[Rfam]
RNA: SAM-I/IV (S-adenosyl methionine) riboswitch aptamer
RNA sequence: CGCCAUCAUCAGGAGAAGGGCUGGCGCCCUCGCCAACCUGCCCCGGCCGGGCAAGGUGGUUUCCGCAAAGGGAUGUGGCCGGAACUCCGGCAACCAAGCGGUCGAAC
Numbered sequence: 001c002g003c004c005a006u007c008a009u010c011a012g013g014a015g016a017a018g019g020g021c022u023g024g025c026g027c028c029c030u031c032g033c034c035a036a037c038c039u040g041c042c043c044c045g046g047c048c049g050g051g052c053a054a055g056g057u058g059g060u061u062u063c064c065g066c067a068a069a070g071g072g073a074u075g076u077g078g079c080c081g082g083a084a085c086u087c088c089g090g091c092a093a094c095c096a097a098g099c100g101g102u103c104g105a106a107c
Base pairs, nucleotide, nucleotide: 007075008074009073010072015031017030018029019028020027021026032060033059034058037056038055039054040052041051042050045102047100078091079090080089081088